The family of this 470-nucleotide part of an RNA from Cryptomonas paramaecium is "Eukaryotic large subunit ribosomal RNA". Its family is annotated with structural constituent of ribosome and ribosome in the Gene Ontology. Rfam's curators put it in the seed alignment.

RNA sequence: GGAAGUAGCAUAUAUUCAAGUGAGAACCUUGAGGACUGGAGUGGAGAAGGGUUCCAUGUUUACUGCGAUUGGACAUGGGUGAGUCGAUCCUAAGAGAAGGAGAAAUUUCCUUUUAAACAUGAAAGAUACAUUGAGAUGUUUUUUCUAAAUCGAAAGGGAAACAGGUUAAUAUUCCUGUACCAAAUGGCGGAGUGUAUGCGGCAACGCAACUGAUUUCGGAGAUAUUAACGUAAACUCUGGAAGGAGUUUUCUUUUCUUUUUAACAGUUUUAUUUUCCACGGAAGCGAGUCGUUCGGAGAAGUGGAAGUAUUAUUGGAAGAACGGUUUUUUUUACUACAUUUUUUUUGUAAAGUUUAAUACCGUCCGGUUUGUUUGCGUUGAUCCUUGAAAAUCUGAAGGAAAAAUAAACUUUCGCAUUUGUUCGUACUCAGAACCGCAUCAGGUCUCCAAGGUGAGUAGCCUCGAGUCAG
Numbered sequence: 001g002g003a004a005g006u007a008g009c010a011u012a013u014a015u016u017c018a019a020g021u022g023a024g025a026a027c028c029u030u031g032a033g034g035a036c037u038g039g040a041g042u043g044g045a046g047a048a049g050g051g052u053u054c055c056a057u058g059u060u061u062a063c064u065g066c067g068a069u070u071g072g073a074c075a076u077g078g079g080u081g082a083g084u085c086g087a088u089c090c091u092a093a094g095a096g097a098a099g100g101a102g103a104a105a106u107u108u109c110c111u112u113u114u115a116a117a118c119a120u121g122a123a124a125g126a127u128a129c130a131u132u133g134a135g136a137u138g139u140u141u142u143u144u145c146u147a148a149a150u151c152g153a154a155a156g157g158g159a160a161a162c163a164g165g166u167u168a169a170u171a172u173u174c175c176u177g178u179a180c181c182a183a184a185u186g187g188c189g190g191a192g193u194g195u196a197u198g199c200g201g202c203a204a205c206g207c208a209a210c211u212g213a214u215u216u217c218g219g220a221g222a223u224a225u226u227a228a229c230g231u232a233a234a235c236u237c238u239g240g241a242a243g244g245a246g247u248u249u250u251c252u253u254u255u256c257u258u259u260u261u262a263a264c265a266g267u268u269u270u271a272u273u274u275u276c277c278a279c280g281g282a283a284g285c286g287a288g289u290c291g292u293u294c295g296g297a298g299a300a301g302u303g304g305a306a307g308u309a310u311u312a313u314u315g316g317a318a319g320a321a322c323g324g325u326u327u328u329u330u331u332u333a334c335u336a337c338a339u340u341u342u343u344u345u346u347g348u349a350a351a352g353u354u355u356a357a358u359a360c361c362g363u364c365c366g367g368u369u370u371g372u373u374u375g376c377g378u379u380g381a382u383c384c385u386u387g388a389a390a391a392u393c394u395g396a397a398g399g400a401a402a403a404a405u406a407a408a409c410u411u412u413c414g415c416a417u418u419u420g421u422u423c424g425u426a427c428u429c430a431g432a433a434c435c436g437c438a439u440c441a442g443g444u445c446u447c448c449a450a451g452g453u454g455a456g457u458a459g460c461c462u463c464g465a466g467u468c469a470g
Base pairs, nucleotide, nucleotide: 015033016032017031018030019029020028034468035467036466037465043448044447045446046445049428050427054078055077056076057075058074059073063071085424086423087422089157090156094151095150096112097111100109101108102107119144121142122141123140124139161178162177163176164175165174181420182419183418184417187415188414189413190412191410192409197208198207199206200205215397216396217395218394219393220392224382225381226380227379229377230376231375232374233373234372235371237367238366239365240260241259242258243257244256245255264315265314266313267312275305276304277303278302279301285295286294287293322362323361324360325359327357328356434443435442450462451461452460453459